[Rfam]
Nucleotides: 083
Base pairs, nucleotide, nucleotide: 012072013071014070015069016068017067018066019065020064021062022061023060024059025058026057029054030053
Number, partner (000 for none) and nucleotide at each position: 001000g002000u003000g004000c005000c006000u007000a008000a009000a010000g011000c012072c013071c014070c015069u016068u017067a018066u019065c020064a021062u022061u023060c024059u025058c026057u027000c028000g029054u030053c031000g032000a033000g034000u035000g036000u037000g038000a039000a040000a041000u042000u043000u044000u045000c046000a047000a048000c049000a050000a051000c052000u053030g054029g055000a056000c057026g058025g059024a060023g061022a062021a063000c064020u065019g066018a067017u068016a069015a070014g071013g072012g073000c074000c075000c076000g077000a078000g079000g080000g081000u082000u083000a